[Rfam]
RNA sequence: AUCCCUUCGCUAAGGAGUCUCUUAUGCGAAAACUCAUGGCCGCUAUCAUAGCGAGCCUGAUAGGGCUGACCGCGCUGUCCGUGUCGAGCACGGCUGUCGCAUGCGGUGAUCCGAGCCAGCAGUCUUCGACCGAAGGCAAAUGAUCCCGCCGCCCGAAGGCGCCGAGCGCGCACAAAAAAAGGCCUUCAUCCGACGAUGAAGGCCUUUUACU
Number, nucleotide and partner (000 for none) at each position: 001a000002u036003c000004c000005c000006u030007u029008c028009g027010c026011u000012a000013a022014g021015g020016a000017g000018u000019c000020u015021c014022u013023u000024a000025u000026g010027c009028g008029a007030a006031a000032a000033c000034u000035c000036a002037u000038g057039g056040c055041c053042g052043c051044u050045a000046u000047c000048a000049u000050a044051g043052c042053g041054a000055g040056c039057c038058u000059g000060a000061u000062a000063g154064g153065g152066c151067u000068g000069a000070c000071c000072g100073c099074g098075c096076u000077g000078u000079c093080c092081g091082u090083g089084u000085c000086g000087a000088g000089c083090a082091c081092g080093g079094c000095u000096g075097u000098c074099g073100c072101a000102u000103g149104c148105g147106g000107u000108g145109a144110u143111c142112c000113g000114a000115g137116c136117c135118a000119g000120c000121a000122g000123u000124c000125u000126u000127c000128g000129a000130c000131c000132g000133a000134a000135g117136g116137c115138a000139a000140a000141u000142g111143a110144u109145c108146c000147c105148g104149c103150c000151g066152c065153c064154c063155g000156a000157a000158g000159g171160c170161g169162c168163c000164g000165a000166g000167c000168g162169c161170g160171c159172a000173c000174a000175a000176a000177a208178a207179a206180a205181g204182g203183c202184c201185u200186u199187c198188a197189u196190c195191c000192g000193a000194c000195g190196a189197u188198g187199a186200a185201g184202g183203c182204c181205u180206u179207u178208u177209a000210c000211u000
RNA: Burkholderia sRNA 11